[Rfam]
RNA sequence: CAGCCAUCCUGAGCGGCCGAGAGACCCGGCUCGUCGACGCCGCAGCAACCCGCAGACCCCUGCAGGGUGCUCCUGCCGGGAACGAUGGGGG
Numbered sequence: 001c002a003g004c005c006a007u008c009c010u011g012a013g014c015g016g017c018c019g020a021g022a023g024a025c026c027c028g029g030c031u032c033g034u035c036g037a038c039g040c041c042g043c044a045g046c047a048a049c050c051c052g053c054a055g056a057c058c059c060c061u062g063c064a065g066g067g068u069g070c071u072c073c074u075g076c077c078g079g080g081a082a083c084g085a086u087g088g089g090g091g
Stems, first nucleotide, its partner, number of pairs: 001091001004088005013043005021032003026079004044071004049067002052063004075083001
About this RNA: The family of this 91-nucleotide sequence from Pseudonocardia oroxyli is "SAM riboswitch aptamer (S box leader)". The SAM riboswitch is found upstream of a number of genes which code for proteins involved in methionine or cysteine biosynthesis in Gram-positive bacteria. The family's consensus secondary structure is taken from published work.